A member of the RNA family "Small nucleolar RNA SNORA41" from Erinaceus europaeus, 134 nucleotides long. The match comes from Rfam's covariance-model search (100 bits).

[Rfam]
RNA sequence: UUCCUUACAGCUACUGUUCUGCAGCUAUCCUUAUAGUAGCAGUUGUGGCAUUCUUCUGUGGAAAAUAAAUUUACACAAUUGAAAUAGUUCUUUCUUAGCAAAACAGAAAGUAGACAUGUGUGUGACAAGGUGUG
Numbered sequence: 001u002u003c004c005u006u007a008c009a010g011c012u013a014c015u016g017u018u019c020u021g022c023a024g025c026u027a028u029c030c031u032u033a034u035a036g037u038a039g040c041a042g043u044u045g046u047g048g049c050a051u052u053c054u055u056c057u058g059u060g061g062a063a064a065a066u067a068a069a070u071u072u073a074c075a076c077a078a079u080u081g082a083a084a085u086a087g088u089u090c091u092u093u094c095u096u097a098g099c100a101a102a103a104c105a106g107a108a109a110g111u112a113g114a115c116a117u118g119u120g121u122g123u124g125a126c127a128a129g130g131u132g133u134g
Stems, first nucleotide, its partner, number of pairs: 003061002007059002019048008073123005088113002090110006
Rfam describes the family as follows. ACA41 is a member of the H/ACA class of snoRNA that guide the sites of modification of uridines to pseudouridines. The source organism's lineage runs through Eukaryota, Craniata, Gnathostomata, Boreoeutheria and Erinaceus.